[Rfam]
RNA sequence: AUAAUGAUACUUCUCUACGGAGUGGCUGGAGAACCCAGCUGGGGUGAGAUUCCCAUGA
Numbered sequence: 001a002u003a004a005u006g007a008u009a010c011u012u013c014u015c016u017a018c019g020g021a022g023u024g025g026c027u028g029g030a031g032a033a034c035c036c037a038g039c040u041g042g043g044g045u046g047a048g049a050u051u052c053c054c055a056u057g058a
Stems, first nucleotide, its partner, number of pairs: 012055001013022003023041003027037003042054003

pemK RNA: a 58-nucleotide sequence. It is one of the family's seed sequences.